TPP riboswitch aptamer (THI element): a 107-nucleotide RNA sequence from Mycobacterium sinensis.
Pairs were carried over by alignment from the consensus structure, which is taken from published work.

RNA sequence: AAUCCACACCGCGGGAGCGCAACCUGUGCGCUGAGAGGACGGCCGGGGCCGUCGACCGUACGAACCUGACCGGGUAAUUCCGGCGAGGGAGAGGAAGAAAAUGACUG
Numbered sequence: 001a002a003u004c005c006a007c008a009c010c011g012c013g014g015g016a017g018c019g020c021a022a023c024c025u026g027u028g029c030g031c032u033g034a035g036a037g038g039a040c041g042g043c044c045g046g047g048g049c050c051g052u053c054g055a056c057c058g059u060a061c062g063a064a065c066c067u068g069a070c071c072g073g074g075u076a077a078u079u080c081c082g083g084c085g086a087g088g089g090a091g092a093g094g095a096a097g098a099a100a101a102u103g104a105c106u107g
Stems, first nucleotide, its partner, number of pairs: 007094001010091001011059004017031005038053005065088003070083004